Rfam assigns this 144-nucleotide RNA from Camelus bactrianus to the family "U11 spliceosomal RNA". Lineage of the source: Eukaryota > Vertebrata > Sarcopterygii > Amniota > Camelus. The base pairs follow the family's consensus structure, which is taken from published work.

RNA sequence: AUAAAGGGCUUCUGUCAUGAGUGGCACAUGUUAGGGCAGGUUGAUUGCUCUUUGUGUAGAAUCAAUGUCAAAAGAUUUCAGAAGGAUAAUUUUUUAUGGAGAUUUGUAUUUGGGCAGCUGGUGAUCAUUGGUCCUGGUGCCCCU
Numbered sequence: 001a002u003a004a005a006g007g008g009c010u011u012c013u014g015u016c017a018u019g020a021g022u023g024g025c026a027c028a029u030g031u032u033a034g035g036g037c038a039g040g041u042u043g044a045u046u047g048c049u050c051u052u053u054g055u056g057u058a059g060a061a062u063c064a065a066u067g068u069c070a071a072a073a074g075a076u077u078u079c080a081g082a083a084g085g086a087u088a089a090u091u092u093u094u095u096a097u098g099g100a101g102a103u104u105u106g107u108a109u110u111u112g113g114g115c116a117g118c119u120g121g122u123g124a125u126c127a128u129u130g131g132u133c134c135u136g137g138u139g140c141c142c143c144u
Stems, first nucleotide, its partner, number of pairs: 009084004013026005027056004033051007057080001059078005112142004117138005123133004
The match comes from Rfam's covariance-model search (77 bits). By type it is a spliceosomal small nuclear RNA.